A member of the RNA family "Group II catalytic intron D1-D4-6" from Sporomusa ovata, 229 nucleotides long.
Pairs were carried over by alignment from the consensus structure.
About the family: Group II introns are found in rRNA, tRNA and mRNA of organelles in fungi, plants and protists, and also in mRNA in bacteria.
Taxonomically the source falls in Sporomusa (Bacteria, Bacillota, Selenomonadales, Sporomusaceae).
The family has 174 seed sequences and 1,617 matches in Rfam 15.1.
RNA sequence: GGAAUCCCACUGAGAAAGAUCUAGCAAAUCACUCAUAGCGAGUCUUGGGCGGCAUAGGGUAACCUAUGUCGUUAAGCGUAGACAGCAAGGUAGUAGGCCGAAAGCGAAAGCUGAAGGGAUAGAGCCUCGAAAUCCCAAUCGGGAAGGUUGAUACUGUGAACCGAGUAGAAAACAACAUCAAGAUAUUCGCUAUGCAAGAAUACCUUGACUUCCCCGGGGUCGGUGACCU
Number, nucleotide and partner (000 for none) at each position: 001g000002g000003a000004a000005u000006c000007c000008c000009a000010c000011u035012g034013a033014g032015a000016a000017a000018g030019a029020u028021c000022u197023a000024g195025c194026a000027a000028a020029u019030c018031a000032c014033u013034c012035a011036u000037a000038g086039c085040g000041a000042g083043u082044c081045u080046u078047g077048g073049g072050c071051g070052g069053c068054a067055u066056a065057g064058g063059g000060u000061a000062a000063c058064c057065u056066a055067u054068g053069u052070c051071g050072u049073u048074a000075a000076g000077c047078g046079u000080a045081g044082a043083c042084a000085g039086c038087a000088a000089g000090g000091u000092a000093g000094u000095a000096g000097g000098c000099c000100g000101a000102a000103a000104g000105c000106g000107a000108a000109a000110g000111c000112u000113g000114a000115a000116g000117g000118g000119a000120u000121a000122g221123a000124g220125c219126c218127u217128c216129g215130a000131a000132a000133u000134c000135c000136c000137a000138a000139u000140c000141g214142g213143g212144a211145a210146g209147g173148u172149u171150g000151a000152u167153a166154c165155u164156g000157u000158g000159a000160a000161c000162c000163g000164a155165g154166u153167a152168g000169a000170a000171a149172a148173c147174a000175a000176c000177a000178u208179c207180a206181a205182g204183a000184u202185a201186u200187u199188c198189g000190c000191u000192a000193u000194g025195c024196a000197a022198g188199a187200a186201u185202a184203c000204c182205u181206u180207g179208a178209c146210u145211u144212c143213c142214c141215c129216g128217g127218g126219g125220u124221c122222g000223g000224u000225g000226a000227c000228c000229u000